[Rfam]
A member of the RNA family "SAM (S-adenosyl methionine) riboswitch aptamer" from Rhodococcus sp. Leaf258, 116 nucleotides long.
The source organism's lineage runs through Bacteria, Bacillati, Mycobacteriales, Nocardiaceae and Rhodococcus.
The base pairs follow the family's consensus structure, which is taken from published work.
Rfam describes the family as follows. SAM-IV is a mRNA element that regulates gene expression via direct sensing of S-adenosylmethionine (SAM or AdoMet). SAM-IV riboswitches share conserved nucleotide positions with the previously described SAM-I riboswitches sequence analysis and molecular recognition experiments suggest that SAM-I and SAM-IV riboswitches share similar ligand binding sites, but have different scaffolds.
RNA sequence: GGUCACGAGUACCAGCAUCAAGCCCCGGCUCGCUGGUCGGCAACCCUCCUCCGCGGUGGGGUGCUCCGGGUGACGACCUGGCCGCGCUCCGACGACGGAGGCGGCAAGCGCGGAUC
Numbered sequence: 001g002g003u004c005a006c007g008a009g010u011a012c013c014a015g016c017a018u019c020a021a022g023c024c025c026c027g028g029c030u031c032g033c034u035g036g037u038c039g040g041c042a043a044c045c046c047u048c049c050u051c052c053g054c055g056g057u058g059g060g061g062u063g064c065u066c067c068g069g070g071u072g073a074c075g076a077c078c079u080g081g082c083c084g085c086g087c088u089c090c091g092a093c094g095a096c097g098g099a100g101g102c103g104g105c106a107a108g109c110g111c112g113g114a115u116c
Stems, first nucleotide, its partner, number of pairs: 001078004009038001011037006021030002039065003044061003048056002081105005087100005